The record is a 103-nucleotide RNA from Sulfobacillus acidophilus, which matches "SAM riboswitch aptamer (S box leader)" in Rfam. The match comes from Rfam's covariance-model search (88 bits). The SAM riboswitch is found upstream of a number of genes which code for proteins involved in methionine or cysteine biosynthesis in Gram-positive bacteria.
RNA sequence: CUCUUAUCCAGAGCGGUGGAGGGACUGGCCCGAUGAAACCCGGCAACCCGUUUAUAUAGGCGGGUGCCAAUUCCGGAAAGACUGAGGUCUUUCAAGAUGAGAG
Numbered sequence: 001c002u003c004u005u006a007u008c009c010a011g012a013g014c015g016g017u018g019g020a021g022g023g024a025c026u027g028g029c030c031c032g033a034u035g036a037a038a039c040c041c042g043g044c045a046a047c048c049c050g051u052u053u054a055u056a057u058a059g060g061c062g063g064g065u066g067c068c069a070a071u072u073c074c075g076g077a078a079a080g081a082c083u084g085a086g087g088u089c090u091u092u093c094a095a096g097a098u099g100a101g102a103g
Base pairs, nucleotide, nucleotide: 001103002102003101004100005099006098007097008096013041015040016039017038021031022030023029025076026075027074028073042068043067044066045065047064048063049062050061051060052059072095077092078091079090080089081088082087